[Rfam]
RNA sequence: GAUUAUCGAAGGAGAUAGCCUUAAUUCAUAAUC
Dot-bracket structure: ((((((.(((((......))))....)))))))
The record is a 33-nucleotide sequence, which matches "S4-Flavobacteria ribosomal protein leader" in Rfam. The family is grouped with related families in Rfam's "Ribosomal Protein S4 Leader clan". By type it is a cis-regulatory leader. Rfam's curators put it in the seed alignment.